[Rfam]
RNA sequence: AAUUUUGGGUAAUUGCGGUCUAGCUAGACUAGGCUGAGGAAAGUCCAUGCUCGCACAAGCUGAGAUGCUUGUAGUGUUCGUGCUUAGCGAAAAAAUAAGCUAAGGCCUUUAUAGAAAUAUAAAGUAACGGCAGAAAAAAAGUGCUAAGGUUACUUGUAACUAUGCCUGAGUAUUCUUGAAAAGUGCCACAGUGACGAAGCAUUAGUGGAAACGCUAAUGGUGGAACGCGGUAAACCCCUCGAGCGAGCAACCCAAACUUUGGUAGGGGCACUCUUUCUAAGGAAUUCAACGAGAGAAAGAGGCAAGUAAUUGCAGACAGAUAAUUACCUCCGGAUAAAAGAGACCCUGACUUUUUAUCUGAGACAGAACAUGGCUUACAGAA
Numbered sequence: 001a002a003u004u005u006u007g008g009g010u011a012a013u014u015g016c017g018g019u020c021u022a023g024c025u026a027g028a029c030u031a032g033g034c035u036g037a038g039g040a041a042a043g044u045c046c047a048u049g050c051u052c053g054c055a056c057a058a059g060c061u062g063a064g065a066u067g068c069u070u071g072u073a074g075u076g077u078u079c080g081u082g083c084u085u086a087g088c089g090a091a092a093a094a095a096u097a098a099g100c101u102a103a104g105g106c107c108u109u110u111a112u113a114g115a116a117a118u119a120u121a122a123a124g125u126a127a128c129g130g131c132a133g134a135a136a137a138a139a140a141g142u143g144c145u146a147a148g149g150u151u152a153c154u155u156g157u158a159a160c161u162a163u164g165c166c167u168g169a170g171u172a173u174u175c176u177u178g179a180a181a182a183g184u185g186c187c188a189c190a191g192u193g194a195c196g197a198a199g200c201a202u203u204a205g206u207g208g209a210a211a212c213g214c215u216a217a218u219g220g221u222g223g224a225a226c227g228c229g230g231u232a233a234a235c236c237c238c239u240c241g242a243g244c245g246a247g248c249a250a251c252c253c254a255a256a257c258u259u260u261g262g263u264a265g266g267g268g269c270a271c272u273c274u275u276u277c278u279a280a281g282g283a284a285u286u287c288a289a290c291g292a293g294a295g296a297a298a299g300a301g302g303c304a305a306g307u308a309a310u311u312g313c314a315g316a317c318a319g320a321u322a323a324u325u326a327c328c329u330c331c332g333g334a335u336a337a338a339a340g341a342g343a344c345c346c347u348g349a350c351u352u353u354u355u356a357u358c359u360g361a362g363a364c365a366g367a368a369c370a371u372g373g374c375u376u377a378c379a380g381a382a
Stems, first nucleotide, its partner, number of pairs: 004382003007378001008328007016036006041376003045373005050247005055072006078242003082238001083104006105128001107124007129237002132176004140167002143165002148161005183235002185231003200219008251267003271301007302313004331360010

The family of this 382-nucleotide RNA from Carnobacterium maltaromaticum is "Bacterial RNase P class B". Ribonuclease P (RNase P) is a ubiquitous endoribonuclease, found in archaea, bacteria and eukarya as well as chloroplasts and mitochondria. Its best characterised activity is the generation of mature 5'-ends of tRNAs by cleaving the 5'-leader elements of precursor-tRNAs.